[Rfam]
RNA sequence: UGGUAGAUGCACCCUGACUAAUUCCCUGGAGGACUUCCUCUGGGGGUUUUCUUU
Numbered sequence: 001u002g003g004u005a006g007a008u009g010c011a012c013c014c015u016g017a018c019u020a021a022u023u024c025c026c027u028g029g030a031g032g033a034c035u036u037c038c039u040c041u042g043g044g045g046g047u048u049u050u051c052u053u054u
Base pairs, nucleotide, nucleotide: 002013003012004011023046024045025044026043027042028041029040030039031038032037
Nitrogen stress-induced RNA 1: a 54-nucleotide sequence from Leptolyngbya sp. NIES-3755. Pairs were carried over by alignment from the consensus structure. The organism belongs to Leptolyngbya, within Bacteria. By type it is a small RNA. For this family Rfam cites "Heterocyst-specific transcription of NsiR1, a non-coding RNA encoded in a tandem array of direct repeats in cyanobacteria" (Ionescu et al., J Mol Biol, 2010).